A member of the RNA family "algC RNA" from Enterobacter sp. 638, 52 nucleotides long. Rfam classes the family as a cis-regulatory element. Lineage of the source: Bacteria > Pseudomonadati > Enterobacterales > Enterobacteriaceae > Enterobacter. The family's consensus secondary structure is taken from published work.
RNA sequence: AAUAAAAUCUCCUGAACAGGAGAGGGCCGACUGUUGCCUGAAAAAGGGAUCA
Numbered sequence: 001a002a003u004a005a006a007a008u009c010u011c012c013u014g015a016a017c018a019g020g021a022g023a024g025g026g027c028c029g030a031c032u033g034u035u036g037c038c039u040g041a042a043a044a045a046g047g048g049a050u051c052a
Stems, first nucleotide, its partner, number of pairs: 009022005